[Rfam]
Rfam assigns this 82-nucleotide sequence from Trypanosoma brucei to the family "Small nucleolar RNA TBR6".
For this family Rfam cites "The genes for small nucleolar RNAs in Trypanosoma brucei are organized in clusters and are transcribed as a polycistronic RNA" (Dunbar et al., Nucleic Acids Res, 2000).
RNA sequence: CGCGUGAUGACAUACAAAGUUGUUUGCACAUUUUCCGACACACCGUGAGCGAGUUACAAUAUUACAAGAACACCAUCUGAAU
Numbered sequence: 001c002g003c004g005u006g007a008u009g010a011c012a013u014a015c016a017a018a019g020u021u022g023u024u025u026g027c028a029c030a031u032u033u034u035c036c037g038a039c040a041c042a043c044c045g046u047g048a049g050c051g052a053g054u055u056a057c058a059a060u061a062u063u064a065c066a067a068g069a070a071c072a073c074c075a076u077c078u079g080a081a082u
Stems, first nucleotide, its partner, number of pairs: 001051003004029003009024003034048002036045002
Dot-bracket structure: ((((((..(((..........)))..)))....((((......)).)))))...............................
The base pairs follow the family's consensus structure, which was predicted with RNAfold.